[Rfam]
RNA: SAM riboswitch aptamer (S box leader)
RNA sequence: CAUCCAUCCCGAGCGACUGAGAGACCUGGCUCGUCGAAGUCGCAGCAACCGCCCGUCCGGCGCCGAUGGCGAAGGAACCGGGGUCAGGUGCUACCGCCAGGACCGAUGGAGG
Numbered sequence: 001c002a003u004c005c006a007u008c009c010c011g012a013g014c015g016a017c018u019g020a021g022a023g024a025c026c027u028g029g030c031u032c033g034u035c036g037a038a039g040u041c042g043c044a045g046c047a048a049c050c051g052c053c054c055g056u057c058c059g060g061c062g063c064c065g066a067u068g069g070c071g072a073a074g075g076a077a078c079c080g081g082g083g084u085c086a087g088g089u090g091c092u093a094c095c096g097c098c099a100g101g102a103c104c105g106a107u108g109g110a111g112g
Base pairs, nucleotide, nucleotide: 001112003110004109005108006107007106008105013043014042015041016040017039021032022031023030026100027099028098029097044092045091046090047089049088050087051084052083053082054081096104